[Rfam]
RNA sequence: GGGGUGUUCUCAGAACGAGGGGUCUAAAGAAUGGCUUCUCUGUUUACAACAUACCCAAGAAUAAUAUGGGGCCAUUGUAAUGAGGGGCAAAGCACUAUUUCCUCUCUGUGAGUAUAUUCCCUACAUGU
Number, nucleotide and partner (000 for none) at each position: 001g000002g056003g055004g054005u053006g052007u051008u000009c000010u000011c000012a000013g045014a044015a043016c042017g041018a000019g039020g038021g037022g035023u034024c033025u000026a000027a000028a000029g000030a000031a000032u000033g024034g023035c022036u000037u021038c020039u019040c000041u017042g016043u015044u014045u013046a000047c000048a000049a000050c000051a007052u006053a005054c004055c003056c002057a000058a000059g000060a000061a000062u000063a000064a000065u000066a000067u000068g000069g121070g120071g119072c000073c000074a000075u000076u114077g113078u112079a000080a000081u110082g109083a000084g103085g102086g101087g000088c000089a098090a000091a096092g000093c000094a000095c000096u091097a000098u089099u000100u000101c086102c085103u084104c000105u000106c000107u000108g000109u082110g081111a000112g078113u077114a076115u000116a000117u000118u000119c071120c070121c069122u000123a000124c000125a000126u000127g000128u000